[Rfam]
Nucleotides: 153
Stems, first nucleotide, its partner, number of pairs: 003151008017029003031133002033122002035067004062120002071097002102118005124136003
Number, partner (000 for none) and nucleotide at each position: 001000a002000u003151a004150u005149u006148c007147c008146u009145u010144u011000g012000g013000g014000g015000c016000a017029g018028g019027g020000u021000g022000u023000a024000a025000u026000u027019c028018c029017c030000g031133a032132c033122c034121g035067a036066c037065g038064g039000u040000g041000a042000u043000a044000a045000a046000g047000c048000u049000u050000a051000a052000c053000u054000g055000c056000u057000u058000u059000u060000u061000a062120g063119u064038c065037c066036g067035u068000g069000a070000c071097c072096c073000g074000g075000a076000u077000c078000a079000u080000u081000u082000u083000u084000g085000a086000a087000a088000a089000a090000u091000g092000u093000g094000a095000a096072g097071g098000u099000g100000g101000a102118u103117u104116u105115g106114g107000u108000g109000u110000a111000a112000a113000u114106c115105c116104a117103a118102a119063g120062c121034c122033g123000a124136c125135a126134g127000u128000a129000a130000c131000a132032g133031u134126c135125u136124g137000g138000a139000u140000g141000g142000g143000a144010a145009a146008a147007g148006g149005a150004a151003u152000g153000g